[Rfam]
Shown here is an 88-nucleotide RNA from Mycolicibacterium neoaurum, a member of the family "Fluoride riboswitch aptamer (crcB RNA motif)". It scores 36 bits against the family's covariance model. Its family is annotated with response to fluoride and positive regulation of gene expression in the Gene Ontology. The organism belongs to Mycolicibacterium neoaurum, within Bacteria.
RNA sequence: CUCGACGACGGCGAUGGAUCUCCGCCGAGACGCCCGGUGACAGGUGUCUGAACCGCCUCGUCCGGAGGCUGAUGGCUCCUUUCCCCGA
Numbered sequence: 001c002u003c004g005a006c007g008a009c010g011g012c013g014a015u016g017g018a019u020c021u022c023c024g025c026c027g028a029g030a031c032g033c034c035c036g037g038u039g040a041c042a043g044g045u046g047u048c049u050g051a052a053c054c055g056c057c058u059c060g061u062c063c064g065g066a067g068g069c070u071g072a073u074g075g076c077u078c079c080u081u082u083c084c085c086c087g088a
Stems, first nucleotide, its partner, number of pairs: 010026004016079003020075002055069004